A member of the RNA family "Group II catalytic intron D1-D4-1" from Paenibacillus antri, 87 nucleotides long. Group II introns are found in rRNA, tRNA and mRNA of organelles in fungi, plants and protists, and also in mRNA in bacteria. Pairs were carried over by alignment from the consensus structure. The organism belongs to Paenibacillus, within Bacteria.
[Rfam]
RNA sequence: UAACCAGAGUCGAGAGGCUCUGCUGAAUCCGCAGGAGUCAGCAGAGGCCAUAGUACGCGAGUAUGGGACGCCGGAAAGCGGAAGGGC
Numbered sequence: 001u002a003a004c005c006a007g008a009g010u011c012g013a014g015a016g017g018c019u020c021u022g023c024u025g026a027a028u029c030c031g032c033a034g035g036a037g038u039c040a041g042c043a044g045a046g047g048c049c050a051u052a053g054u055a056c057g058c059g060a061g062u063a064u065g066g067g068a069c070g071c072c073g074g075a076a077a078g079c080g081g082a083a084g085g086g087c
Stems, first nucleotide, its partner, number of pairs: 001025002005022007038045002047087003056080003